[Rfam]
RNA sequence: AUGUACCACACGUACACUGCGGUUCCUCCGCGCCGUCCGCGCCCCCCCUGGCGACUGCUCGCUACGUUUUGCUAACC
Numbered sequence: 001a002u003g004u005a006c007c008a009c010a011c012g013u014a015c016a017c018u019g020c021g022g023u024u025c026c027u028c029c030g031c032g033c034c035g036u037c038c039g040c041g042c043c044c045c046c047c048c049u050g051g052c053g054a055c056u057g058c059u060c061g062c063u064a065c066g067u068u069u070u071g072c073u074a075a076c077c
Stems, first nucleotide, its partner, number of pairs: 002016005020035004025030001049074006
The family of this 77-nucleotide sequence from Xanthomonas campestris is "Xanthomonas sRNA sX9". For this family Rfam cites "Genome-wide transcriptome analysis of the plant pathogen Xanthomonas identifies sRNAs with putative virulence functions" (Schmidtke et al., Nucleic Acids Res, 2011). The family's RNA type in Rfam is small RNA. The family has 16 seed sequences and 309 matches in Rfam 15.1.